Rfam assigns this 92-nucleotide sequence from Paenibacillus sp. yr247 to the family "c-di-GMP-I riboswitch aptamer". A search with the family's covariance model found it, with a score of 85 bits. The organism belongs to Paenibacillus, within Bacteria.
RNA sequence: UCACGAAAAAGGCAAACCUCUCGAAAGGGGGGGACGCAAAGCCAUGGGUCUAAGGUCGCGCAAACUGCGGCUAUGAUCGCCGGGUUACCGAA
Numbered sequence: 001u002c003a004c005g006a007a008a009a010a011g012g013c014a015a016a017c018c019u020c021u022c023g024a025a026a027g028g029g030g031g032g033g034a035c036g037c038a039a040a041g042c043c044a045u046g047g048g049u050c051u052a053a054g055g056u057c058g059c060g061c062a063a064a065c066u067g068c069g070g071c072u073a074u075g076a077u078c079g080c081c082g083g084g085u086u087a088c089c090g091a092a
Base pairs, nucleotide, nucleotide: 012037013036017032018031019030020029021028022027040086041085042084043083045082046081047080048077049076050075055071056070057069058068059067060066